[Rfam]
RNA sequence: CAACGUUCACCCCUUUCGUUGGGGCGCAGACACUCCAAGCCACGGAACGGGGACUUGGA
Dot-bracket structure: ...[[[[[.((((.......)))).........((((((((...]]]]].)).))))))